[Rfam]
RNA sequence: AAGAAUUGCUAGGGGUGCUUGUUAGCUGAAAGAGACAAUAGUCUCAACCCUUUGAACCUGAUCUGGUUAAUACCAGCGUAGGGAAGCAGAAAAGUACAGUA
Numbered sequence: 001a002a003g004a005a006u007u008g009c010u011a012g013g014g015g016u017g018c019u020u021g022u023u024a025g026c027u028g029a030a031a032g033a034g035a036c037a038a039u040a041g042u043c044u045c046a047a048c049c050c051u052u053u054g055a056a057c058c059u060g061a062u063c064u065g066g067u068u069a070a071u072a073c074c075a076g077c078g079u080a081g082g083g084a085a086g087c088a089g090a091a092a093a094g095u096a097c098a099g100u101a
Stems, first nucleotide, its partner, number of pairs: 006089005011051004017026003033044004057082004063076004
RNA: TPP riboswitch aptamer (THI element)